[Rfam]
Shown here is an 80-nucleotide RNA from Varanus komodoensis, a member of the family "Small nucleolar RNA SNORD72". The match comes from Rfam's covariance-model search (85 bits). The pairing is the family consensus, mapped onto this sequence. A reference for the family is Huttenhofer et al. (2001), "RNomics: an experimental approach that identifies 201 candidates for novel, small, non-messenger RNAs in mouse", EMBO J. snoRNA HBII-240 belongs to the CD family of snoRNAs. It is the human orthologue of the mouse MBII-240 and is predicted to guide 2'O-ribose methylation of the large 28S rRNA at residue U4590. Taxonomically the source falls in Varanus (Eukaryota, Dipnotetrapodomorpha, Amniota, Anguimorpha). By type it is a C/D-box small nucleolar RNA.
RNA sequence: AGCUUAUCAGUGAUGUUCUCUUAACAAAUGUCUGAACAUAUGAAUUCCUAAGUGAUUUCAUUUUGUAACUGAGAUGAGCU
Numbered sequence: 001a002g003c004u005u006a007u008c009a010g011u012g013a014u015g016u017u018c019u020c021u022u023a024a025c026a027a028a029u030g031u032c033u034g035a036a037c038a039u040a041u042g043a044a045u046u047c048c049u050a051a052g053u054g055a056u057u058u059c060a061u062u063u064u065g066u067a068a069c070u071g072a073g074a075u076g077a078g079c080u
Stems, first nucleotide, its partner, number of pairs: 002079007